Eukaryotic small subunit ribosomal RNA: a 600-nucleotide part of an RNA from Zootermopsis nevadensis. Its Rfam clan is "SSU clan". For this family Rfam cites "Crystal structure of the ribosome at 5.5 A resolution" (Yusupov et al., Science, 2001). NCBI's taxonomy places the organism under Eukaryota, Bilateria, Ecdysozoa, Termopsidae, Zootermopsis. Pairs were carried over by alignment from the consensus structure, which is taken from published work. Gene Ontology terms of the family: structural constituent of ribosome and ribosome. It scores 1654 bits against the family's covariance model.
RNA sequence: UACCUGGUUGAUCCUGCCAGCGGUGAUAUGCUUAGAUAAAAGAUUAAGCCAUGCAUGUGUGAGAACACAUCUUUAAACGAUGAAUCUGCGAAAGGCUCAUUAAAACAGCUAUAAUUUACUCGAUUUUGACUAUCUAAACGGAUAACUGCGAAAAAUUUGGAGCUAAUACGUGCACUAAAGCAAGUUCCUCGUGGACCUGCGCACUUAUUAGACGAAGACCAAUCAGGGCAACCUGUUUUGGUGACUCUGAAUAAUUUCGCUGAUCGCAUGGUCUUGUACCGGCGACAGAUCGAUCGAGUUUCUGCCCUAUCAACUGUCGAUGGAAGUCCAUGUGACUGCCAUGGUUGUAACGGGUAACGGAGGAUCAGGGUUCGACUCCGGAGAGGGAGCCUGAGAAACGGCUACCACAUCCAAGGAAGGCAGCAGGCGCGUAAAUUACCCACUCUCAAUUCGAGGAGGUAGUGACUAUCAAUAACGAGACAGAUCUCUAUGAGGCCUGUUAUCGGAAUGGAAACAAUAUAAAUCCUUUAAUGAGGAACUAUGAGAGGGCAAGUCUGGUGCCAGCAGCCGCGGUAAUUCCAGCUCUCAAAGUGUAUAUCG
Numbered sequence: 001u002a003c004c005u006g007g008u009u010g011a012u013c014c015u016g017c018c019a020g021c022g023g024u025g026a027u028a029u030g031c032u033u034a035g036a037u038a039a040a041a042g043a044u045u046a047a048g049c050c051a052u053g054c055a056u057g058u059g060u061g062a063g064a065a066c067a068c069a070u071c072u073u074u075a076a077a078c079g080a081u082g083a084a085u086c087u088g089c090g091a092a093a094g095g096c097u098c099a100u101u102a103a104a105a106c107a108g109c110u111a112u113a114a115u116u117u118a119c120u121c122g123a124u125u126u127u128g129a130c131u132a133u134c135u136a137a138a139c140g141g142a143u144a145a146c147u148g149c150g151a152a153a154a155a156u157u158u159g160g161a162g163c164u165a166a167u168a169c170g171u172g173c174a175c176u177a178a179a180g181c182a183a184g185u186u187c188c189u190c191g192u193g194g195a196c197c198u199g200c201g202c203a204c205u206u207a208u209u210a211g212a213c214g215a216a217g218a219c220c221a222a223u224c225a226g227g228g229c230a231a232c233c234u235g236u237u238u239u240g241g242u243g244a245c246u247c248u249g250a251a252u253a254a255u256u257u258c259g260c261u262g263a264u265c266g267c268a269u270g271g272u273c274u275u276g277u278a279c280c281g282g283c284g285a286c287a288g289a290u291c292g293a294u295c296g297a298g299u300u301u302c303u304g305c306c307c308u309a310u311c312a313a314c315u316g317u318c319g320a321u322g323g324a325a326g327u328c329c330a331u332g333u334g335a336c337u338g339c340c341a342u343g344g345u346u347g348u349a350a351c352g353g354g355u356a357a358c359g360g361a362g363g364a365u366c367a368g369g370g371u372u373c374g375a376c377u378c379c380g381g382a383g384a385g386g387g388a389g390c391c392u393g394a395g396a397a398a399c400g401g402c403u404a405c406c407a408c409a410u411c412c413a414a415g416g417a418a419g420g421c422a423g424c425a426g427g428c429g430c431g432u433a434a435a436u437u438a439c440c441c442a443c444u445c446u447c448a449a450u451u452c453g454a455g456g457a458g459g460u461a462g463u464g465a466c467u468a469u470c471a472a473u474a475a476c477g478a479g480a481c482a483g484a485u486c487u488c489u490a491u492g493a494g495g496c497c498u499g500u501u502a503u504c505g506g507a508a509u510g511g512a513a514a515c516a517a518u519a520u521a522a523a524u525c526c527u528u529u530a531a532u533g534a535g536g537a538a539c540u541a542u543g544a545g546a547g548g549g550c551a552a553g554u555c556u557g558g559u560g561c562c563a564g565c566a567g568c569c570g571c572g573g574u575a576a577u578u579c580c581a582g583c584u585c586u587c588a589a590a591g592u593g594u595a596u597a598u599c600g
Stems, first nucleotide, its partner, number of pairs: 004020005022599003026596007035470004041463001042430001048428003052425003057089002062087003069081002096383003106304003111299002115297002121292004138171003146162002149159003180200003184196001187194002205254005218242004226233001228232001264285004269281004306354003313345003320342004325337003358380004362373004385406002388403003408419001410417002436461001438460003444456004476505003479501005485495004512532001514529001516528002542588006555582004564571002